[Rfam]
Rfam assigns this 204-nucleotide RNA from Tupaia belangeri to the family "Small nucleolar RNA SNORA73 family". From the family's description: U17 (SNORA73A and SNORA73B) also known as E1 belongs to the H/ACA class of small nucleolar RNAs (snoRNAs). Vertebrate U17 is intron-encoded and ranges in length from 200-230 nucleotides, longer than most snoRNAs. It is one of the most abundant snoRNAs in human cells and is essential for the cleavage of pre-rRNA within the 5' external transcribed spacer (ETS). This cleavage leads to the formation of 18S rRNA. Regions of the U17 RNA are complementary to rRNA and act as guides for RNA/RNA interactions, although these regions do not seem to be well conserved between organisms. The family is grouped with related families in Rfam's "snR30-U17 clan". The literature on the family includes a 2002 paper in J Mol Evol by Cervelli et al., "Comparative Structure Analysis of Vertebrate U17 Small Nucleolar RNA (snoRNA)". Rfam's curators put it in the seed alignment. Rfam links the family to the GO terms nucleolus and RNA processing.
RNA sequence: CCAACGCGGAUACCCCGGGAGGUCACUCUCCCCGGGCUCUGUCCUGGUGGCAUAGGGGAGCAUAGGGCUCUGUCCCGGGAUGUACAGUCCCUUCCCACGGCGUUGGAGAUGAAGCUGGGCUCCGCGCCCGCACCUGCAUAUUCCUACAGCUUCCCAGAGUCCUAUGGACAGUGACUGGGGGGACAAACCAUGCAGGAAACACCU
Numbered sequence: 001c002c003a004a005c006g007c008g009g010a011u012a013c014c015c016c017g018g019g020a021g022g023u024c025a026c027u028c029u030c031c032c033c034g035g036g037c038u039c040u041g042u043c044c045u046g047g048u049g050g051c052a053u054a055g056g057g058g059a060g061c062a063u064a065g066g067g068c069u070c071u072g073u074c075c076c077g078g079g080a081u082g083u084a085c086a087g088u089c090c091c092u093u094c095c096c097a098c099g100g101c102g103u104u105g106g107a108g109a110u111g112a113a114g115c116u117g118g119g120c121u122c123c124g125c126g127c128c129c130g131c132a133c134c135u136g137c138a139u140a141u142u143c144c145u146a147c148a149g150c151u152u153c154c155c156a157g158a159g160u161c162c163u164a165u166g167g168a169c170a171g172u173g174a175c176u177g178g179g180g181g182g183a184c185a186a187a188c189c190a191u192g193c194a195g196g197a198a199a200c201a202c203c204u
Base pairs, nucleotide, nucleotide: 001106002105003104004103005102006101007100008044009043010042011041012040014036015035016034018029019028020027021026047098048097049096050095056091057090058089059088060085062083063082064081133196134195135194136193137192138191139190150182151181152180153179154178155177159169160168161167162166